[Rfam]
The record is a 145-nucleotide RNA from Gossypium anomalum, which matches "MIR7502 microRNA precursor family" in Rfam. Gene Ontology terms of the family: RISC complex and miRNA-mediated post-transcriptional gene silencing. Pairs were carried over by alignment from the consensus structure, which was predicted with RNAalifold.
RNA sequence: CUACUAAAAUUUCAUCCAUUUGUAUUGUGAAAAACUAACAUGGCUGCUGAAAAAACCAAACAAUGACAUGAGGCGUGCAACAUGUAUCUCAUACUAAUGUAAAGUGACAAGUUUUUAACAGUAGAAAUGAAUAAAAUUUUGGACA
Dot-bracket structure: ...(((((((((.((..((((.((((.(.((((...............................................................................)))).).)))).))))..)).)))))))))...